[Rfam]
RNA sequence: CCAACGUGGAUACCCUCAGAGGUCACUCUUUCUAGGCUCUGUAGGUGGCGUAGGGGAACAUAAGGCUCUGCCCAAUGAUGUACAGUCUCUUCCCACAUCGUUGGAGGGAAAGUUGGGCCUUGAAUCUGUGCCUACAUAUUUCUACAGCUACUCGGAGUCCUGUGGACAAUGACUGAGAAGAAAAAUCAUGCAAGAAACAUCU
Numbered sequence: 001c002c003a004a005c006g007u008g009g010a011u012a013c014c015c016u017c018a019g020a021g022g023u024c025a026c027u028c029u030u031u032c033u034a035g036g037c038u039c040u041g042u043a044g045g046u047g048g049c050g051u052a053g054g055g056g057a058a059c060a061u062a063a064g065g066c067u068c069u070g071c072c073c074a075a076u077g078a079u080g081u082a083c084a085g086u087c088u089c090u091u092c093c094c095a096c097a098u099c100g101u102u103g104g105a106g107g108g109a110a111a112g113u114u115g116g117g118c119c120u121u122g123a124a125u126c127u128g129u130g131c132c133u134a135c136a137u138a139u140u141u142c143u144a145c146a147g148c149u150a151c152u153c154g155g156a157g158u159c160c161u162g163u164g165g166a167c168a169a170u171g172a173c174u175g176a177g178a179a180g181a182a183a184a185a186u187c188a189u190g191c192a193a194g195a196a197a198c199a200u201c202u
Stems, first nucleotide, its partner, number of pairs: 001104006010042003014036003018029004045096004054089004060081003063076001131194001133192001135190003148180002151177003157167004
A member of the RNA family "Small nucleolar RNA SNORA73 family" from Molossus molossus, 202 nucleotides long. The match comes from Rfam's covariance-model search (150 bits). The family is grouped with related families in Rfam's "snR30-U17 clan". The family has 66 seed sequences and 2,326 matches in Rfam 15.1. On this family, see Cervelli et al., J Mol Evol 2002: "Comparative Structure Analysis of Vertebrate U17 Small Nucleolar RNA (snoRNA)". Rfam classes the family as an H/ACA-box small nucleolar RNA. Its family is annotated with RNA processing and nucleolus in the Gene Ontology. U17 (SNORA73A and SNORA73B) also known as E1 belongs to the H/ACA class of small nucleolar RNAs (snoRNAs). Vertebrate U17 is intron-encoded and ranges in length from 200-230 nucleotides, longer than most snoRNAs. It is one of the most abundant snoRNAs in human cells and is essential for the cleavage of pre-rRNA within the 5' external transcribed spacer (ETS). The family's consensus secondary structure is taken from published work.